[Rfam]
RNA sequence: AACACCGUGUCUCAGAGAGACACACAUUCCUCUUUUUAGAACCUGGGAUAUGGUUCUUUAGAAUGGAGAUGAAACCGCGGUUUUUUGAAGAUGUAUUUUGUCCGUGCGGUUUAUGCCCUCCUUGCUUGCCCCGUCGUCUUUGGAUUGGCUGGGGUCUUGCAAUGGGAGAGGAAACAAAAACUAGUCUACGUU
Numbered sequence: 001a002a003c004a005c006c007g008u009g010u011c012u013c014a015g016a017g018a019g020a021c022a023c024a025c026a027u028u029c030c031u032c033u034u035u036u037u038a039g040a041a042c043c044u045g046g047g048a049u050a051u052g053g054u055u056c057u058u059u060a061g062a063a064u065g066g067a068g069a070u071g072a073a074a075c076c077g078c079g080g081u082u083u084u085u086u087g088a089a090g091a092u093g094u095a096u097u098u099u100g101u102c103c104g105u106g107c108g109g110u111u112u113a114u115g116c117c118c119u120c121c122u123u124g125c126u127u128g129c130c131c132c133g134u135c136g137u138c139u140u141u142g143g144a145u146u147g148g149c150u151g152g153g154g155u156c157u158u159g160c161a162a163u164g165g166g167a168g169a170g171g172a173a174a175c176a177a178a179a180a181c182u183a184g185u186c187u188a189c190g191u192u
Stems, first nucleotide, its partner, number of pairs: 007023001009021001011019003028072002030068004035061002038058001039056004090186003093181002096179006116171002118168004138164001140162002145159001147157002150154001
A member of the RNA family "Ascomycota telomerase RNA" from Chaetomium sp. MPI-SDFR-AT-0129, 192 nucleotides of a longer RNA. The family has 4 seed sequences and 475 matches in Rfam 15.1. On this family, see Qi et al., Nucleic Acids Res 2013: "The common ancestral core of vertebrate and fungal telomerase RNAs". Rfam links the family to the GO terms telomerase catalytic core complex, telomerase activity and telomere maintenance via telomerase. Its Rfam clan is "Telomerase clan".